A member of the RNA family "Small nucleolar RNA U2-30" from Catagonus wagneri, 64 nucleotides long. The family has 21 seed sequences and 664 matches in Rfam 15.1. Gene Ontology terms of the family: RNA processing and nucleolus.
RNA sequence: GAGCAGUGAUGAAAAGGUUUUACUCCUGACCUUUAAGAAGGUUUCUACACUUGAUCUGAGCUCA
Numbered sequence: 001g002a003g004c005a006g007u008g009a010u011g012a013a014a015a016g017g018u019u020u021u022a023c024u025c026c027u028g029a030c031c032u033u034u035a036a037g038a039a040g041g042u043u044u045c046u047a048c049a050c051u052u053g054a055u056c057u058g059a060g061c062u063c064a
Base pairs, nucleotide, nucleotide: 001063002062003061004060013034014033015032016031017030018029019028